[Rfam]
RNA sequence: GGACUUGAUGCGGGAGAGCAUGGGAGGCCUUUCAGGCCAGCCCGUCGCCGAAGGAGCAACCGCCCCGGAAUCUCUCAGGCCAAUGGACCGCAUCAUGGGC
Numbered sequence: 001g002g003a004c005u006u007g008a009u010g011c012g013g014g015a016g017a018g019c020a021u022g023g024g025a026g027g028c029c030u031u032u033c034a035g036g037c038c039a040g041c042c043c044g045u046c047g048c049c050g051a052a053g054g055a056g057c058a059a060c061c062g063c064c065c066c067g068g069a070a071u072c073u074c075u076c077a078g079g080c081c082a083a084u085g086g087a088c089c090g091c092a093u094c095a096u097g098g099g100c
Stems, first nucleotide, its partner, number of pairs: 006095008020045004047080003050076002054074003060068002
Shown here is a 100-nucleotide RNA sequence from Sphingobium indicum, a member of the family "Glycine riboswitch aptamer". A search with the family's covariance model found it, with a score of 64 bits. The source organism's lineage runs through Bacteria, Pseudomonadati, Sphingomonadales, Sphingobiaceae and Sphingobium indicum. Rfam describes the family as follows. This family represents the bacterial glycine riboswitch.